This 504-nucleotide part of an RNA from Haloplanus ruber belongs to the Rfam family "Archaeal small subunit ribosomal RNA".
Rfam's curators put it in the seed alignment.
Pairs were carried over by alignment from the consensus structure, which is taken from published work.
Rfam 15.1 lists 709 matches to the family in 491 species.
A reference for the family is Cannone et al. (2002), "The comparative RNA web (CRW) site: an online database of comparative sequence and structure information for ribosomal, intron, and other RNAs", BMC Bioinformatics.
[Rfam]
RNA sequence: AUUCCGGUUGAUCCUGCCGGAGGCCAUUGCUAUCGGGGUCCGAUUUAGCCAUGCUAGUUGUACGAGCUUACACUCGUAGCAAAUAGCUCCGUAACACGUGGCCAAACCACCCUACAGAGAACAAUAACCUCGGGAAACUGAGGCUAAUAGUUCAUACCCGUCUUACGCUGGAAUGCCAAGACGCGCAAACGUUCCGACGCUGUAGGACGUGGCUGCGGCCGAUUAGGUUGACGGUGGGGUAACGGCCCACCGUGCCGAUAAUCGGUACGGGUUGUGAGAGCAAGAACCCGGAGACGGAAUCUGAGACAAGAUUCCGGGCCCUACGGGGCGCAGCAGGCGCGAAACCUUUACACUGCACGCAAGUGCGAUAAGGGGACCCCGAGUGCGAGGGCAUACAGUCCUCGCUUUUCAGCACCGUAGGGAGGUGCUGGAAUAAGAGCUGGGCAAGACCGGUGCCAGCCGCCGCGGUAAUACCGGCAGCUCGAGUGAUGGCCGAUCUUAUUG
Numbered sequence: 001a002u003u004c005c006g007g008u009u010g011a012u013c014c015u016g017c018c019g020g021a022g023g024c025c026a027u028u029g030c031u032a033u034c035g036g037g038g039u040c041c042g043a044u045u046u047a048g049c050c051a052u053g054c055u056a057g058u059u060g061u062a063c064g065a066g067c068u069u070a071c072a073c074u075c076g077u078a079g080c081a082a083a084u085a086g087c088u089c090c091g092u093a094a095c096a097c098g099u100g101g102c103c104a105a106a107c108c109a110c111c112c113u114a115c116a117g118a119g120a121a122c123a124a125u126a127a128c129c130u131c132g133g134g135a136a137a138c139u140g141a142g143g144c145u146a147a148u149a150g151u152u153c154a155u156a157c158c159c160g161u162c163u164u165a166c167g168c169u170g171g172a173a174u175g176c177c178a179a180g181a182c183g184c185g186c187a188a189a190c191g192u193u194c195c196g197a198c199g200c201u202g203u204a205g206g207a208c209g210u211g212g213c214u215g216c217g218g219c220c221g222a223u224u225a226g227g228u229u230g231a232c233g234g235u236g237g238g239g240u241a242a243c244g245g246c247c248c249a250c251c252g253u254g255c256c257g258a259u260a261a262u263c264g265g266u267a268c269g270g271g272u273u274g275u276g277a278g279a280g281c282a283a284g285a286a287c288c289c290g291g292a293g294a295c296g297g298a299a300u301c302u303g304a305g306a307c308a309a310g311a312u313u314c315c316g317g318g319c320c321c322u323a324c325g326g327g328g329c330g331c332a333g334c335a336g337g338c339g340c341g342a343a344a345c346c347u348u349u350a351c352a353c354u355g356c357a358c359g360c361a362a363g364u365g366c367g368a369u370a371a372g373g374g375g376a377c378c379c380c381g382a383g384u385g386c387g388a389g390g391g392c393a394u395a396c397a398g399u400c401c402u403c404g405c406u407u408u409u410c411a412g413c414a415c416c417g418u419a420g421g422g423a424g425g426u427g428c429u430g431g432a433a434u435a436a437g438a439g440c441u442g443g444g445c446a447a448g449a450c451c452g453g454u455g456c457c458a459g460c461c462g463c464c465g466c467g468g469u470a471a472u473a474c475c476g477g478c479a480g481c482u483c484g485a486g487u488g489a490u491g492g493c494c495g496a497u498c499u500u501a502u503u504g
Stems, first nucleotide, its partner, number of pairs: 004020005022494010033382009042340001048338003052335003057080003062077005087293003097217007106210002111206007119153004128143006159183006167176002191198002219265003226256003231253008268290004272283004295316006318329004346372001348371003354367005385405008410430007437483006450477004459466002